Bacterial RNase P class B: a 380-nucleotide RNA from Planomicrobium sp. CPCC 101110. Ribonuclease P (RNase P) is a ubiquitous endoribonuclease, found in archaea, bacteria and eukarya as well as chloroplasts and mitochondria. Lineage of the source: Bacteria > Bacillota > Caryophanales > Caryophanaceae > Planomicrobium. The match comes from Rfam's covariance-model search (325 bits).
RNA sequence: AAAUUCUGGCAAUCGCUCCGGCUUCUCGCCGGAGAGGAAAGUCCAUGCUCACACGGACCUGAGACGGCCGUAGUGAUCGCGCUCAGCGAAACAAUAAGCUGGGGCAGCUGUUUUCAGCUGACGGCGGGUAGAACGCCUAAGUCUUCGGAUAUGGCCGAAAUACCCUGAAGGUGCCACAGUGACGGAGCUGCAUGAGAAAUUGUGCAGGUGGAACGAGGUAAACCCCGCGAGUGAGAAACCCAAAUUAUGGUAGGGGCACUUUUCUGAAGGAAUUCAACUGAGGAAGAGGCGGGAGAGAAACCCGCAGAUAGAUGGUUGCCGUCCACUAGUACGAGGUGCAAACUGCUUGAGUACGUGGAAACAAAACAUGGCUUAUAGAA
Numbered sequence: 001a002a003a004u005u006c007u008g009g010c011a012a013u014c015g016c017u018c019c020g021g022c023u024u025c026u027c028g029c030c031g032g033a034g035a036g037g038a039a040a041g042u043c044c045a046u047g048c049u050c051a052c053a054c055g056g057a058c059c060u061g062a063g064a065c066g067g068c069c070g071u072a073g074u075g076a077u078c079g080c081g082c083u084c085a086g087c088g089a090a091a092c093a094a095u096a097a098g099c100u101g102g103g104g105c106a107g108c109u110g111u112u113u114u115c116a117g118c119u120g121a122c123g124g125c126g127g128g129u130a131g132a133a134c135g136c137c138u139a140a141g142u143c144u145u146c147g148g149a150u151a152u153g154g155c156c157g158a159a160a161u162a163c164c165c166u167g168a169a170g171g172u173g174c175c176a177c178a179g180u181g182a183c184g185g186a187g188c189u190g191c192a193u194g195a196g197a198a199a200u201u202g203u204g205c206a207g208g209u210g211g212a213a214c215g216a217g218g219u220a221a222a223c224c225c226c227g228c229g230a231g232u233g234a235g236a237a238a239c240c241c242a243a244a245u246u247a248u249g250g251u252a253g254g255g256g257c258a259c260u261u262u263u264c265u266g267a268a269g270g271a272a273u274u275c276a277a278c279u280g281a282g283g284a285a286g287a288g289g290c291g292g293g294a295g296a297g298a299a300a301c302c303c304g305c306a307g308a309u310a311g312a313u314g315g316u317u318g319c320c321g322u323c324c325a326c327u328a329g330u331a332c333g334a335g336g337u338g339c340a341a342a343c344u345g346c347u348u349g350a351g352u353a354c355g356u357g358g359a360a361a362c363a364a365a366a367c368a369u370g371g372c373u374u375a376u377a378g379a380a
Stems, first nucleotide, its partner, number of pairs: 004380003008320007016034006039374003043371005048235005053071004058067002077230005082103006104122001105120006123225002126165004135155003141150003171223002173219003188207008239255003259288007289305005322359005329354004